[Rfam]
RNA sequence: UAAAUAAAUGAACAAUAACCAAUUUCUUGUUCUAUCAAGAGUGUUGGUUACUGCUCAUUUCC
Numbered sequence: 001u002a003a004a005u006a007a008a009u010g011a012a013c014a015a016u017a018a019c020c021a022a023u024u025u026c027u028u029g030u031u032c033u034a035u036c037a038a039g040a041g042u043g044u045u046g047g048u049u050a051c052u053g054c055u056c057a058u059u060u061c062c
Stems, first nucleotide, its partner, number of pairs: 006060006013053002016050002021045002024041006
Source information: Shown here is a 62-nucleotide RNA from Eucalyptus grandis, a member of the family "Plastid-psbA-4 3UTR RNA". A reference for the family is Richter et al. (2023), "Retrograde signaling in plants: A critical review focusing on the GUN pathway and beyond", Plant Commun. The match comes from Rfam's covariance-model search (57 bits). Rfam's curators write: Plastid psbA-4 is a non-coding RNA (ncRNA) present in plastids. It was identified in inverted repeat sequences in the 3 prime untranslate region (3UTR) of photosystem II quinone-binding protein (psbA).